[Rfam]
A member of the RNA family "Small nucleolar RNA SNORA9" from Irena cyanogastra, 129 nucleotides long. Gene Ontology terms of the family: nucleolus and RNA processing. The source organism's lineage runs through Eukaryota, Saurischia, Passeriformes, Corvoidea and Irena. The family has 36 seed sequences and 1,202 matches in Rfam 15.1. The family's consensus secondary structure was predicted with PFOLD. Rfam describes the family as follows. ACA9 is a member of the H/ACA class of snoRNA that guide the sites of modification of uridines to pseudouridines. A search with the family's covariance model found it, with a score of 87 bits.
RNA sequence: CCGCAGGCUCCAGCGUGGGGGGGCCUGGCGUGGCUCCCCCCAUUCCUGCAGCCCUGCCAGAGCGUCCUGGGGCCGUUUGAGGCCGCUCCCGGCGCCUCCCGGGGGCGGUUAUGGAAACCCCGGACAGGC
Numbered sequence: 001c002c003g004c005a006g007g008c009u010c011c012a013g014c015g016u017g018g019g020g021g022g023g024c025c026u027g028g029c030g031u032g033g034c035u036c037c038c039c040c041c042a043u044u045c046c047u048g049c050a051g052c053c054c055u056g057c058c059a060g061a062g063c064g065u066c067c068u069g070g071g072g073c074c075g076u077u078u079g080a081g082g083c084c085g086c087u088c089c090c091g092g093c094g095c096c097u098c099c100c101g102g103g104g105g106c107g108g109u110u111a112u113g114g115a116a117a118c119c120c121c122g123g124a125c126a127g128g129c
Base pairs, nucleotide, nucleotide: 003057004056005055006054007053016042017041018040021036022035023034024033025032068122069121070120071119072118083108084107085106086105087104088103090101091100092099